[Rfam]
RNA sequence: GGUCAAUGAUGAGUAGUAAAAGGUCUGAGGGCACAGGGGAAUUACACUCUAUUACCCUUUGGCUCCCAGCAGUCCUUGUUCUGUCAUGCCAUAGUAGAGCAAUGACUGAGGAAGAAAUUGCUGACAGUUUGGGAUUAAUUCAGUUCCAGUUCUCCACAGAGAAGGGAGUUGUGGCACUGAAUGCCAUCCAACAGAACUGGUUAAGAGGAGCUUGUGGUAAUGGAGUGUAUUCAUUUGCUGUGUGUGAUCUCAAGUUUUCAAGCUGAGACC
Dot-bracket structure: ((((................................((((.(..((((((((..........(((((((((((......((.(((((.(.........)..))))).)).......))))))).......(.(((..........(((...((((.........))))...)))...........)))).................)))).........))))))))..................).))))...............))))
Numbered sequence: 001g002g003u004c005a006a007u008g009a010u011g012a013g014u015a016g017u018a019a020a021a022g023g024u025c026u027g028a029g030g031g032c033a034c035a036g037g038g039g040a041a042u043u044a045c046a047c048u049c050u051a052u053u054a055c056c057c058u059u060u061g062g063c064u065c066c067c068a069g070c071a072g073u074c075c076u077u078g079u080u081c082u083g084u085c086a087u088g089c090c091a092u093a094g095u096a097g098a099g100c101a102a103u104g105a106c107u108g109a110g111g112a113a114g115a116a117a118u119u120g121c122u123g124a125c126a127g128u129u130u131g132g133g134a135u136u137a138a139u140u141c142a143g144u145u146c147c148a149g150u151u152c153u154c155c156a157c158a159g160a161g162a163a164g165g166g167a168g169u170u171g172u173g174g175c176a177c178u179g180a181a182u183g184c185c186a187u188c189c190a191a192c193a194g195a196a197c198u199g200g201u202u203a204a205g206a207g208g209a210g211c212u213u214g215u216g217g218u219a220a221u222g223g224a225g226u227g228u229a230u231u232c233a234u235u236u237g238c239u240g241u242g243u244g245u246g247a248u249c250u251c252a253a254g255u256u257u258u259c260a261a262g263c264u265g266a267g268a269c270c
Stems, first nucleotide, its partner, number of pairs: 001270004037251004042246001045227008063210004067123007080109002083106005089099001131189001133188003146174003152168004